Rfam assigns this 151-nucleotide sequence from Paradevosia tibetensis to the family "FMN riboswitch aptamer (RFN element)". A search with the family's covariance model found it, with a score of 115 bits. The base pairs follow the family's consensus structure, which is taken from published work.

[Rfam]
RNA sequence: UAACGUUCUCAGGGCGGGGUGAAAUUCCCCACCGGCGGUAAUCGGGCGCAAGGCCCGUAGAGCCCGCGAGCGCCGCGCCGCAAGGCACGGGUCAGCAGAUUCGGUGAGAUUCCGAAGCCGACGGUCACAGUCCGGAUGAAAGAGAACGGGU
Numbered sequence: 001u002a003a004c005g006u007u008c009u010c011a012g013g014g015c016g017g018g019g020u021g022a023a024a025u026u027c028c029c030c031a032c033c034g035g036c037g038g039u040a041a042u043c044g045g046g047c048g049c050a051a052g053g054c055c056c057g058u059a060g061a062g063c064c065c066g067c068g069a070g071c072g073c074c075g076c077g078c079c080g081c082a083a084g085g086c087a088c089g090g091g092u093c094a095g096c097a098g099a100u101u102c103g104g105u106g107a108g109a110u111u112c113c114g115a116a117g118c119c120g121a122c123g124g125u126c127a128c129a130g131u132c133c134g135g136a137u138g139a140a141a142g143a144g145a146a147c148g149g150g151u
Stems, first nucleotide, its partner, number of pairs: 004148007017029003031131002033120002035067004062118002070096002100116005122134003